The family of this 352-nucleotide part of an RNA from Aminipila butyrica is "Bacterial small subunit ribosomal RNA".
Its family is annotated with structural constituent of ribosome and ribosome in the Gene Ontology.
On this family, see Yusupov et al., Science 2001: "Crystal structure of the ribosome at 5.5 A resolution".
The family is grouped with related families in Rfam's "SSU clan".
The family has 99 seed sequences and 42,628 matches in Rfam 15.1.
The base pairs follow the family's consensus structure, which is taken from published work.
[Rfam]
RNA sequence: GGCGUAAAGAGUGCGUAGGUGGUCUUGUAAGCGUGGGGUGAAAGGCAGUGGCUUAACCAUUGUAAGCCCUGCGAACUGUGAGACUUGAGUGCAGGAGAGGAAAGCGGAAUUCCUAGUGUAGCGGUGAAAUGCGUAGAUAUUAGGAGGAACACCAGUGGCGAAGGCGGCUUUCUGGACUGUAACUGACACUGAGGCACGAAAGCGUGGGGAGCAAACAGGAUUAGAUACCCUGGUAGUCCACGCCGUAAACGAUGAGCACUAGGUGUCGGGGUCGCAAGACUUCGGUGCCGCAGUUAACGCAUUAAGUGCUCCGCCUGGGGAGUACGCACGCAAGUGUGAAACUCAAAGGAAU
Number, nucleotide and partner (000 for none) at each position: 001g315002g314003c313004g000005u000006a000007a000008a000009g312010a000011g197012u196013g195014c194015g000016u191017a000018g190019g189020u188021g000022g084023u083024c082025u081026u080027g079028u078029a000030a077031g076032c073033g072034u071035g070036g069037g068038g067039u066040g000041a000042a000043a000044g000045g063046c062047a061048g060049u059050g058051g057052c000053u000054u000055a000056a000057c051058c050059a049060u048061u047062g046063u045064a000065a000066g039067c038068c037069c036070u035071g034072c033073g032074a000075a000076c031077u030078g028079u027080g026081a025082g024083a023084c022085u000086u000087g000088a184089g183090u182091g180092c179093a178094g177095g000096a000097g000098a000099g173100g172101a171102a170103a169104g168105c167106g150107g000108a000109a000110u146111u145112c144113c143114u142115a141116g140117u139118g000119u000120a000121g132122c131123g130124g000125u000126g000127a000128a000129a000130u123131g122132c121133g000134u000135a000136g000137a000138u000139a117140u116141u115142a114143g113144g112145a111146g110147g000148a000149a000150c106151a000152c000153c000154a000155g000156u000157g000158g165159c164160g000161a000162a000163g000164g159165c158166g000167g105168c104169u103170u102171u101172c100173u099174g000175g000176a000177c094178u093179g092180u091181a000182a090183c089184u088185g000186a000187c000188a020189c019190u018191g016192a000193g000194g014195c013196a012197c011198g000199a000200a000201a000202g243203c242204g241205u240206g239207g238208g000209g000210a000211g237212c236213a000214a000215a000216c232217a231218g230219g229220a000221u000222u000223a000224g000225a000226u000227a000228c000229c219230c218231u217232g216233g000234u000235a000236g212237u211238c207239c206240a205241c204242g203243c202244c000245g000246u000247a000248a000249a000250c000251g000252a000253u000254g311255a310256g309257c308258a307259c306260u000261a000262g289263g288264u287265g286266u285267c284268g283269g282270g281271g280272u279273c278274g000275c000276a000277a000278g273279a272280c271281u270282u269283c268284g267285g266286u265287g264288c263289c262290g000291c000292a000293g300294u299295u000296a000297a000298c000299g294300c293301a000302u000303u000304a000305a000306g259307u258308g257309c256310u255311c254312c009313g003314c002315c001316u000317g344318g343319g342320g000321a000322g000323u000324a000325c000326g337327c336328a335329c334330g000331c000332a000333a000334g329335u328336g327337u326338g000339a000340a000341a000342c319343u318344c317345a000346a000347a000348g000349g000350a000351a000352u000